[Rfam]
RNA sequence: AAAGAAAAAACCCUGCAAAUACCUGCAGGGUCCUUCUAUAUCCUUUUAACAGGACAGAAGGCAAAGGGAGAGGAGAAACCGGAGGAAGAACUUAUGGGGAAACGUAAGUCUUCUCCGCGG
Dot-bracket structure: ..........(((((((......)))))))(((((...(.((((......)))).).......)))))...........((((.((((.(((((..........)))))))))))))...
The record is a 120-nucleotide sequence from Bacillus methanolicus, which matches "ylbH leader" in Rfam. A reference for the family is Barrick et al. (2004), "New RNA motifs suggest an expanded scope for riboswitches in bacterial genetic control", Proc Natl Acad Sci U S A. Rfam's curators write: This family is a putative regulatory RNA structure that is found upstream of the ylbH gene in B. subtilis and related low GC Gram-positive bacteria. NCBI's taxonomy places the organism under Bacteria, Bacillota, Caryophanales, Bacillaceae, Bacillus methanolicus. Rfam classes the family as a cis-regulatory leader. Gene Ontology term of the family: regulation of gene expression.